[Rfam]
RNA sequence: ACCGAGGUUUUCUAGGGUUCCGCGGCUUCUUCAUAGAAGCUCGGUCUGGUCCGAGAGAAAACACACAGGACUUUCCUGUGGACACGGAGGGAUAAAAGCCCGGGAGGA
Numbered sequence: 001a002c003c004g005a006g007g008u009u010u011u012c013u014a015g016g017g018u019u020c021c022g023c024g025g026c027u028u029c030u031u032c033a034u035a036g037a038a039g040c041u042c043g044g045u046c047u048g049g050u051c052c053g054a055g056a057g058a059a060a061a062c063a064c065a066c067a068g069g070a071c072u073u074u075c076c077u078g079u080g081g082a083c084a085c086g087g088a089g090g091g092a093u094a095a096a097a098g099c100c101c102g103g104g105a106g107g108a
Base pairs, nucleotide, nucleotide: 007062008061009060010059011058012057015052016051020049021048022046023043024042025040026039027038028037064080065079066078067077068076069075070074083103085106089101090100091099
Dot-bracket structure: ......((((((..((...(((((((((........)))).))..).)).))....)))))).(((((((...)))))))..(.[...(((.......))).)..]..